Rfam assigns this 64-nucleotide RNA to the family "Small nucleolar RNA SNORD43".
[Rfam]
Nucleotides: 064
Base pairs, nucleotide, nucleotide: 001064002063003062004061
Number, partner (000 for none) and nucleotide at each position: 001064c002063a003062g004061a005000a006000a007000u008000g009000a010000u011000g012000a013000a014000c015000u016000u017000a018000c019000u020000g021000a022000c023000g024000g025000g026000c027000g028000g029000a030000c031000a032000g033000a034000g035000a036000c037000a038000c039000u040000g041000u042000g043000c044000u045000g046000a047000u048000u049000g050000u051000c052000a053000g054000g055000u056000u057000c058000u059000g060000a061004u062003u063002u064001g
It is one of the family's seed sequences.
U43 is a C/D box small nucleolar RNA that is encoded in intron 1 of the ribosomal protein L3 gene in human and cow. Three other snoRNAs ( U82, U83a and U83b) are also encoded in the same host gene but from different introns. The rice homologue is expressed from a cluster also containing snoR16.
A reference for the family is Chen et al. (2003), "The high diversity of snoRNAs in plants: identification and comparative study of 120 snoRNA genes from Oryza sativa", Nucleic Acids Res.
The pairing is the family consensus, mapped onto this sequence.
It is annotated as a C/D-box small nucleolar RNA.
Gene Ontology terms of the family: nucleolus and RNA processing.